[Rfam]
Bacterial RNase P class A: a 344-nucleotide RNA sequence from Fusobacterium varium.
Nucleotides: 344
Stems, first nucleotide, its partner, number of pairs: 001340010011329001013309001015307005021040002024037005045327003049324005054213004061246004066209005071085005086100001087098004101204002106202002108198003123143002125139006151169006171193001172191008217266004227256005237251005273292001275290006
Number, partner (000 for none) and nucleotide at each position: 001340u002339a003338a004337g005336g006335u007334a008333u009332u010331a011329g012000a013309g014000u015307u016306g017305a018304u019303c020000g021040c022039u023000g024037c025036u026035u027034g028033a029000g030000u031000a032000a033028u034027c035026a036025a037024g038000g039022a040021g041000a042000g043000g044000a045327a046326a047325g048000u049324c050323c051322g052321g053320g054213c055212u056211c057210c058000a059000u060000a061246g062245a063244g064243c065000a066209a067208g068207a069206g070205g071085g072084c073083a074082g075081c076000u077000a078000a079000c080000g081075g082074c083073u084072g085071c086100u087098a088097a089096a090095g091000g092000u093000a094000a095090c096089u097088u098087u099000a100086a101204g102203g103000a104000a105000a106202g107201u108198g109197c110196c111000a112000c113000a114000g115000a116000a117000a118000a119000u120000a121000a122000a123143c124142c125139g126138c127137c128136a129135u130134a131000u132000u133000a134130u135129a136128u137127g138126g139125u140000a141000a142124g143123g144000g145000u146000g147000a148000a149000a150000a151169g152168g153167u154166g155165g156164u157000g158000u159000a160000a161000g162000a163000g164156a165155c166154c167153a168152c169151c170000a171193g172191u173190u174189c175188c176187u177186u178185a179184g180000g181000a182000a183000a184179c185178u186177a187176a188175g189174g190173a191172a192000g193171c194000u195000a196110g197109g198108u199000a200000a201107a202106c203102c204101c205070c206069c207068u208067c209066u210057g211056g212055a213054g214000c215000a216000a217266g218265g219264c220263u221000a222000a223000a224000u225000a226000g227256g228255a229254a230253a231252g232000g233000a234000u235000a236000a237251a238250g239249g240248g241247c242000u243064g244063c245062u246061c247241g248240u249239c250238c251237u252231c253230u254229u255228u256227c257000a258000g259000g260000g261000u262000a263220a264219g265218c266217u267000g268000c269000u270000u271000g272000a273292u274000a275290c276289c277288a278287u279286a280285a281000g282000u283000a284000a285280u286279u287278a288277u289276g290275g291000g292273g293000c294000u295000a296000g297000a298000u299000a300000a301000a302000u303019g304018a305017u306016c307015a308000u309013c310000a311000a312000a313000u314000a315000c316000a317000a318000a319000a320053c321052c322051c323050g324049g325047c326046u327045u328000a329011u330000u331010u332009a333008a334007u335006g336005c337004c338003u339002u340001a341000a342000a343000a344000a
Pairs were carried over by alignment from the consensus structure, which is taken from published work.